The family of this 124-nucleotide sequence from Arachis hypogaea is "Small nucleolar RNA SNORD14". Rfam classes the family as a C/D-box small nucleolar RNA. Pairs were carried over by alignment from the consensus structure, which was predicted with PFOLD. A reference for the family is Samarsky et al. (1996), "An essential domain in Saccharomyces cerevisiae U14 snoRNA is absent in vertebrates, but conserved in other yeasts", Nucleic Acids Res. A search with the family's covariance model found it, with a score of 84 bits. NCBI's taxonomy places the organism under Eukaryota, Tracheophyta, Fabales, Dalbergieae, Arachis.

[Rfam]
RNA sequence: GGCCAAUGAUGAUAAAUCCAAAGGCUUGUUUCUCUAAACAUUCGCAGUGGCCGCCUAAGAGCUUUCGCCUUCGCCAGGCUUGAGAGCUUGUGCUGCUUUAAUCCUUCCUUGGAUGUCUGAGGUC
Numbered sequence: 001g002g003c004c005a006a007u008g009a010u011g012a013u014a015a016a017u018c019c020a021a022a023g024g025c026u027u028g029u030u031u032c033u034c035u036a037a038a039c040a041u042u043c044g045c046a047g048u049g050g051c052c053g054c055c056u057a058a059g060a061g062c063u064u065u066c067g068c069c070u071u072c073g074c075c076a077g078g079c080u081u082g083a084g085a086g087c088u089u090g091u092g093c094u095g096c097u098u099u100a101a102u103c104c105u106u107c108c109u110u111g112g113a114u115g116u117c118u119g120a121g122g123u124c
Stems, first nucleotide, its partner, number of pairs: 001124004061087006